[Rfam]
RNA sequence: AGGAACUAAAAUAGCAACCUUCAUAUAUACUCGAAGAUAUGGUUCGAACGUUUCUACCAAAUCACCGUAAAUGAUUUGACUAUGAAGGCAGAUUGAUCAGUA
Numbered sequence: 001a002g003g004a005a006c007u008a009a010a011a012u013a014g015c016a017a018c019c020u021u022c023a024u025a026u027a028u029a030c031u032c033g034a035a036g037a038u039a040u041g042g043u044u045c046g047a048a049c050g051u052u053u054c055u056a057c058c059a060a061a062u063c064a065c066c067g068u069a070a071a072u073g074a075u076u077u078g079a080c081u082a083u084g085a086a087g088g089c090a091g092a093u094u095g096a097u098c099a100g101u102a
Base pairs, nucleotide, nucleotide: 018088019087020086021085022084023083024082025081031047032046033045034044035043058078059077060076061075062074063073064072

A member of the RNA family "Purine riboswitch aptamer" from Bacillus sp. 1NLA3E, 102 nucleotides long. The base pairs follow the family's consensus structure, which is taken from published work. Riboswitches are metabolite binding domains within certain messenger RNAs that serve as precision sensors for their corresponding targets. It scores 87 bits against the family's covariance model. The organism belongs to Bacillus, within Bacteria.